This 144-nucleotide sequence from Rhodoferax saidenbachensis belongs to the Rfam family "Group II catalytic intron D1-D4-7". Group II introns are found in rRNA, tRNA and mRNA of organelles in fungi, plants and protists, and also in mRNA in bacteria.

RNA sequence: CCACGUCUGGAACGGCGUGACCUCGACUGCACGUGCAUCUGGAGUAAUUCGGGUGUGCGGAGCUACGGAUAAACGAACUGUGCGCAAGCACAUAAGGCUGACGCGAGUCAGUCCCAAUCCCACGAGCAAGAAGUGGGUAGGUCG
Numbered sequence: 001c002c003a004c005g006u007c008u009g010g011a012a013c014g015g016c017g018u019g020a021c022c023u024c025g026a027c028u029g030c031a032c033g034u035g036c037a038u039c040u041g042g043a044g045u046a047a048u049u050c051g052g053g054u055g056u057g058c059g060g061a062g063c064u065a066c067g068g069a070u071a072a073a074c075g076a077a078c079u080g081u082g083c084g085c086a087a088g089c090a091c092a093u094a095a096g097g098c099u100g101a102c103g104c105g106a107g108u109c110a111g112u113c114c115c116a117a118u119c120c121c122a123c124g125a126g127c128a129a130g131a132a133g134u135g136g137g138u139a140g141g142u143c144g
Stems, first nucleotide, its partner, number of pairs: 002019006027068003031064001032059012080091004096113002101108002119137005
Gene Ontology term of the family: Group II intron splicing. The pairing is the family consensus, mapped onto this sequence. Taxonomically the source falls in Rhodoferax (Bacteria, Pseudomonadati, Burkholderiales, Comamonadaceae).